Source information:
Shown here is a 131-nucleotide RNA from Nematostella vectensis, a member of the family "Small Cajal body specific RNA 8". scaRNAs are a specific class of small nuclear RNAs which localise to the Cajal bodies and guide the modification of RNA polymerase II transcribed spliceosomal RNAs U1, U2, U4, U5 and U12. The family has 22 seed sequences and 955 matches in Rfam 15.1. The organism belongs to Nematostella, within Eukaryota. It is annotated as a small Cajal body RNA. On this family, see Huttenhofer et al., EMBO J 2001: "RNomics: an experimental approach that identifies 201 candidates for novel, small, non-messenger RNAs in mouse". Its family is annotated with Cajal body, nucleolus and RNA processing in the Gene Ontology.
RNA sequence: UGGGACCAAGAUACAGAGGUCAUCAGGUAAGCCCCAAGGUGGCCUCUCACUAAUGCUCCCUAGAUCAAACGCUCUCUGAUGACUGUGGGUGCUUAAGAAAUGCUCCAUGGACAGAUACAUGGCAGACAUGC
Numbered sequence: 001u002g003g004g005a006c007c008a009a010g011a012u013a014c015a016g017a018g019g020u021c022a023u024c025a026g027g028u029a030a031g032c033c034c035c036a037a038g039g040u041g042g043c044c045u046c047u048c049a050c051u052a053a054u055g056c057u058c059c060c061u062a063g064a065u066c067a068a069a070c071g072c073u074c075u076c077u078g079a080u081g082a083c084u085g086u087g088g089g090u091g092c093u094u095a096a097g098a099a100a101u102g103c104u105c106c107a108u109g110g111a112c113a114g115a116u117a118c119a120u121g122g123c124a125g126a127c128a129u130g131c
Stems, first nucleotide, its partner, number of pairs: 002060004007055001015047004022040003070125001071123003075119001083110003088105001089103002